About this RNA
This 196-nucleotide RNA from Cytobacillus depressus belongs to the Rfam family "Group II catalytic intron D1-D4-5". Lineage of the source: Bacteria > Bacillati > Bacilli > Caryophanales > Cytobacillus. The pairing is the family consensus, mapped onto this sequence. It scores 121 bits against the family's covariance model.
RNA sequence: CUGAAGGGUUAUAUCGAAGAAUCAAAUGAUAGGGUAACGUCUUGAAGGGUUCUCUCUUAGUCGAAUAGCACAGGAUUUAGUAAGAAAAAUAGUGUUAUAAGCUCGGCAAAAAGGCGUGAGAAUUUACCGUAACAGGUUAAGCUGACGAAAGCCUACCCGAUGGGGUGGUGUAAAUCAUGAUGCUUGAGUUGAAUGA
Numbered sequence: 001c002u003g004a005a006g007g008g009u010u011a012u013a014u015c016g017a018a019g020a021a022u023c024a025a026a027u028g029a030u031a032g033g034g035u036a037a038c039g040u041c042u043u044g045a046a047g048g049g050u051u052c053u054c055u056c057u058u059a060g061u062c063g064a065a066u067a068g069c070a071c072a073g074g075a076u077u078u079a080g081u082a083a084g085a086a087a088a089a090u091a092g093u094g095u096u097a098u099a100a101g102c103u104c105g106g107c108a109a110a111a112a113g114g115c116g117u118g119a120g121a122a123u124u125u126a127c128c129g130u131a132a133c134a135g136g137u138u139a140a141g142c143u144g145a146c147g148a149a150a151g152c153c154u155a156c157c158c159g160a161u162g163g164g165g166u167g168g169u170g171u172a173a174a175u176c177a178u179g180a181u182g183c184u185u186g187a188g189u190u191g192a193a194u195g196a
Stems, first nucleotide, its partner, number of pairs: 018053006031043004054188003061106004065098007075090004113184005122175006128147003135143002151169003155166004
Group II introns are found in rRNA, tRNA and mRNA of organelles in fungi, plants and protists, and also in mRNA in bacteria.